[Rfam]
Record summary:
This 571-nucleotide part of an RNA from an uncultured bacterium belongs to the Rfam family "Bacterial small subunit ribosomal RNA". Rfam 15.1 lists 42,628 matches to the family in 10,626 species.
RNA sequence: UUAGCGGCGCGAUUCGCCCUUUCAGAUUGAACGCUGGCGGUAUGCUUAACACAUGCAAGUCGAGCGCGAAAGUGGCUUCGGCCACGAGUAGAGCGGCGGACGGGUGCGUAACACGUGGAUAAUCUGCCUUCAGGUCUGGGAUAACCCUGGGAAACUAGAGCUAAUACCGGAUAAGACCACAGGUUCCAUGGAACCAGAGGUAAAAGGCGGCUUUCGGGCUGUCUCCUGAAGAUGAGUCCGCGUCCCAUCAGGUAGUUGGUGAGGUAAAGGCUCACCAAGCCUAAGACGGGUAGCCGACCUUAGCGGGUGAUCGGCCACACGGGGACUGAGACACGGCCCCGACUCCUACGGGAGGCAGCAGUGGGGAAUCUUGGGCAAUGGGCGAAAGCCUGACCCAGCAAUACCGCGUGAGGGAUGAAGGCCUUCGGGUCGUAAACCUCUGUCAGCAGGAACGAUGGGUUUCCGUGCUAAUACCACGGAGACUUGACGGUACCUGCAAAGGAAGCCCCGGCUAACUCCGUGCCAGCAGCCGCGGUAAUACGGAGGGGGCAAGCGUUGCUCGGAAUUACUG
Dot-bracket structure: ..........((.........)).((.(.((((((.(((((((((....(((.(((..(((..((..(...(((((....)))))...)...)))))......(((......((((((((..((...(((((((.((((.....(.((((....)))).)......)))).....(((.(.((((......)))).).)))....((((((......)))))).)))))))..))))))))))(((....(((..((((((((.......)))))))))))......)))..((((((((....))))...))))))).(((((............))))).((((....))))...)))))).).....(.(((...(((((....))))).)))).)).))))))..((((......((((....)))).....))))...(.(((((...(.....(((((((.........))))))).....)....)))))....)..(((((......(((((.....((....)).......)))))))))).))))))).))..........